[Rfam]
RNA sequence: GGGCGCGGAUGGACGCCGGUGUGUCUCCCGGUCUUCAAAACCGGUGUGAAUGGCGCAGAACCGUUUGGGUGGGUUCGACUCCCACACGCGCUC
Number, nucleotide and partner (000 for none) at each position: 001g093002g092003g091004c090005g089006c088007g087008g085009a000010u000011g026012g025013a024014c023015g022016c021017c000018g000019g000020u000021g016022u015023g014024u013025c012026u011027c000028c044029c043030g042031g041032u040033c000034u000035u000036c000037a000038a000039a000040a032041c031042c030043g029044g028045u000046g000047u067048g066049a065050a064051u063052g000053g000054c000055g000056c000057a000058g000059a000060a000061c000062c000063g051064u050065u049066u048067g047068g000069g000070u084071g083072g082073g081074u000075u000076c000077g000078a000079c000080u000081c073082c072083c071084a070085c008086a000087c007088g006089c005090g004091c003092u002093c001

A member of the RNA family "Selenocysteine transfer RNA" from Anaerotruncus colihominis, 93 nucleotides long. The match comes from Rfam's covariance-model search (68 bits). The family has 109 seed sequences and 4,211 matches in Rfam 15.1. The family's consensus secondary structure is taken from published work. For this family Rfam cites "Eukaryotic selenocysteine tRNA has the 9/4 secondary structure" (Mizutani and Goto, FEBS Lett, 2000).